[Rfam]
RNA sequence: CAGGAAACCAAGCCUAAUCGGCGCCCGCGAGGACGCCGAGCCGGGGACCCACUCCAUCCCGGGGUGAAUCCCACCGGCGCGAGCCGGAGGGUAGGGAGAGCUUCCUUUGCUCCCGAACCCGUCAGCUAACCCGGUCGGCAUGAAACUGGAAGAGAU
Numbered sequence: 001c002a003g004g005a006a007a008c009c010a011a012g013c014c015u016a017a018u019c020g021g022c023g024c025c026c027g028c029g030a031g032g033a034c035g036c037c038g039a040g041c042c043g044g045g046g047a048c049c050c051a052c053u054c055c056a057u058c059c060c061g062g063g064g065u066g067a068a069u070c071c072c073a074c075c076g077g078c079g080c081g082a083g084c085c086g087g088a089g090g091g092u093a094g095g096g097a098g099a100g101c102u103u104c105c106u107u108u109g110c111u112c113c114c115g116a117a118c119c120c121g122u123c124a125g126c127u128a129a130c131c132c133g134g135u136c137g138g139c140a141u142g143a144a145a146c147u148g149g150a151a152g153a154g155a156u
Stems, first nucleotide, its partner, number of pairs: 012139003018039006040135006050061001062120003070091003094114004

Overview: Shown here is a 156-nucleotide sequence from Corynebacterium freneyi, a member of the family "c-di-AMP riboswitch aptamer (ydaO/yuaA leader)". NCBI's taxonomy places the organism under Bacteria, Bacillati, Mycobacteriales, Corynebacteriaceae, Corynebacterium freneyi.